[Rfam]
RNA sequence: AAUACCUAAAACAACGAAAGCCCUACCUCUCUUUCGUCCUUACGGCUCCUCGACCGUGCCAGUGUGAAUCAGACAUUACUUGGGUAU
Numbered sequence: 001a002a003u004a005c006c007u008a009a010a011a012c013a014a015c016g017a018a019a020g021c022c023c024u025a026c027c028u029c030u031c032u033u034u035c036g037u038c039c040u041u042a043c044g045g046c047u048c049c050u051c052g053a054c055c056g057u058g059c060c061a062g063u064g065u066g067a068a069u070c071a072g073a074c075a076u077u078a079c080u081u082g083g084g085u086a087u
Stems, first nucleotide, its partner, number of pairs: 034067003039062002041058005047052001
A member of the RNA family "BsrC" from Jeotgalibacillus campisalis, 87 nucleotides long. The literature on the family includes a 2008 paper in Gene by Saito et al., "Novel small RNA-encoding genes in the intergenic regions of Bacillus subtilis". The 301 nucleotide sequence from Kouji Nakamura has been trimmed to a highly conserved ~85 nucleotide long core to form this family. Pairs were carried over by alignment from the consensus structure, which was predicted with CMfinder. NCBI's taxonomy places the organism under Bacteria, Bacillati, Bacillota, Caryophanaceae, Jeotgalibacillus. The family has 29 seed sequences and 572 matches in Rfam 15.1.